[Rfam]
RNA: c-di-AMP riboswitch aptamer (ydaO/yuaA leader)
Organism: Sporomusa acidovorans
RNA sequence: AUAAUUAAAAUGCCGAAUCUAGUAGGUACGGGGGAACCGACAAUUUAUUGGGGUGAAUCCGCAUAAUGCGGUAGGGCGUUCUCGCGUUCUUCUCUUUUGCCCGAAUCCGACAGCUAACCCCGGAGGCAUACGGUAAAGAGAGG
Numbered sequence: 001a002u003a004a005u006u007a008a009a010a011u012g013c014c015g016a017a018u019c020u021a022g023u024a025g026g027u028a029c030g031g032g033g034g035a036a037c038c039g040a041c042a043a044u045u046u047a048u049u050g051g052g053g054u055g056a057a058u059c060c061g062c063a064u065a066a067u068g069c070g071g072u073a074g075g076g077c078g079u080u081c082u083c084g085c086g087u088u089c090u091u092c093u094c095u096u097u098u099g100c101c102c103g104a105a106u107c108c109g110a111c112a113g114c115u116a117a118c119c120c121c122g123g124a125g126g127c128a129u130a131c132g133g134u135a136a137a138g139a140g141a142g143g
Stems, first nucleotide, its partner, number of pairs: 011128004019026002029122005038050002051108003059071004074102004